Shown here is a 116-nucleotide sequence from Plasmodium yoelii, a member of the family "U5 spliceosomal RNA". The literature on the family includes a 1997 paper in Nucleic Acids Res by Zwieb, "The uRNA database".
RNA sequence: GGUGUGUGUACUUACUACAUAACGAAUCAAUCUUUCGCCUUUUACUAAAGAUUGCCGUGUAGGAGGUACUUUAAAUACAAUACCACAAAUUUUUGUCACGUCAAUUUGGCGUGUGU
Numbered sequence: 001g002g003u004g005u006g007u008g009u010a011c012u013u014a015c016u017a018c019a020u021a022a023c024g025a026a027u028c029a030a031u032c033u034u035u036c037g038c039c040u041u042u043u044a045c046u047a048a049a050g051a052u053u054g055c056c057g058u059g060u061a062g063g064a065g066g067u068a069c070u071u072u073a074a075a076u077a078c079a080a081u082a083c084c085a086c087a088a089a090u091u092u093u094u095g096u097c098a099c100g101u102c103a104a105u106u107u108g109g110c111g112u113g114u115g116u
Stems, first nucleotide, its partner, number of pairs: 003079004009068005015062005028054008097115005

The family's consensus secondary structure is taken from published work. By type it is a spliceosomal small nuclear RNA.